Shown here is a 78-nucleotide RNA from Novosphingobium piscinae, a member of the family "Makes More Granules Regulator RNA (mmgR)". Taxonomically the source falls in Novosphingobium (Bacteria, Pseudomonadota, Alphaproteobacteria, Sphingomonadaceae). Pairs were carried over by alignment from the consensus structure. From the family's description: SuhB later renamed mmgR (makes more granules regulator) was a putative non-coding RNA found multiple times in the Agrobacterium tumefaciens genome and related alpha-proteobacteria. By type it is a small RNA.
RNA sequence: CGAACCUGCCUUUCAGGCAUCCUCUCCCAAGACUUCAAAGGCCCGGUCGGCAACGACCGGGCCCUUUUUUUGGUAUCG
Numbered sequence: 001c002g003a004a005c006c007u008g009c010c011u012u013u014c015a016g017g018c019a020u021c022c023u024c025u026c027c028c029a030a031g032a033c034u035u036c037a038a039a040g041g042c043c044c045g046g047u048c049g050g051c052a053a054c055g056a057c058c059g060g061g062c063c064c065u066u067u068u069u070u071u072g073g074u075a076u077c078g
Stems, first nucleotide, its partner, number of pairs: 008018004040063009
Its family is annotated with protein binding, response to nitrogen compound and DNA-templated transcription, termination in the Gene Ontology.